[Rfam]
RNA sequence: CCUGGGAGUGGUAGGCACCUGUAGUCCCAACUACUUGGGAGGUUGAGGGAGGAGGAUCACUUGAGCCCAGGAGCUCUGGGCUGUAGUGUGCUGUGUCAGUUGGGUGUCCACACUAAGACUGGCAUCAGUAUGGUGAUCUUCUAGGAGCAAAUGACUACCAUGUUGCCUAAGGAGGGGCGGACCAGCCCACACUGGCAACAGAGCAGGUCAAAACUCCUUUGCUAAUCAGUAGUGAGAUCGUGCCUGUGAAUAGUCACUGCACUCCAUCCUGGGCAACAGGGUGGGAGCUUUUCUAUA
Numbered sequence: 001c002c003u004g005g006g007a008g009u010g011g012u013a014g015g016c017a018c019c020u021g022u023a024g025u026c027c028c029a030a031c032u033a034c035u036u037g038g039g040a041g042g043u044u045g046a047g048g049g050a051g052g053a054g055g056a057u058c059a060c061u062u063g064a065g066c067c068c069a070g071g072a073g074c075u076c077u078g079g080g081c082u083g084u085a086g087u088g089u090g091c092u093g094u095g096u097c098a099g100u101u102g103g104g105u106g107u108c109c110a111c112a113c114u115a116a117g118a119c120u121g122g123c124a125u126c127a128g129u130a131u132g133g134u135g136a137u138c139u140u141c142u143a144g145g146a147g148c149a150a151a152u153g154a155c156u157a158c159c160a161u162g163u164u165g166c167c168u169a170a171g172g173a174g175g176g177g178c179g180g181a182c183c184a185g186c187c188c189a190c191a192c193u194g195g196c197a198a199c200a201g202a203g204c205a206g207g208u209c210a211a212a213a214c215u216c217c218u219u220u221g222c223u224a225a226u227c228a229g230u231a232g233u234g235a236g237a238u239c240g241u242g243c244c245u246g247u248g249a250a251u252a253g254u255c256a257c258u259g260c261a262c263u264c265c266a267u268c269c270u271g272g273g274c275a276a277c278a279g280g281g282u283g284g285g286a287g288c289u290u291u292u293c294u295a296u297a
Stems, first nucleotide, its partner, number of pairs: 001042003004020003009017002025039003046294007057284006065274007077266004082261007090254005096248001101246007108236001111234005117227002120224005126165010137154002140151001142149001166172002173218005185208003192201003
Dot-bracket structure: ((((((..((.....)))))....(((.........))))))...(((((((....((((((..(((((((.....((((.(((((((.(((((.(....((((((((..(((((.((.(((((.((((((((((.((.(.(......).).)).))))))))))((...))(((((.......(((....(((....)))....))).....))))).))))).))..))))).)...))))))).).)))))))))))).)))).)))))))....))))))...)))))))...

Description:
The record is a 297-nucleotide RNA sequence from Lynx pardinus, which matches "Metazoan signal recognition particle RNA" in Rfam. The signal recognition particle (SRP) is a universally conserved ribonucleoprotein. It is involved in the co-translational targeting of proteins to membranes. The family has 91 seed sequences and 383,523 matches in Rfam 15.1.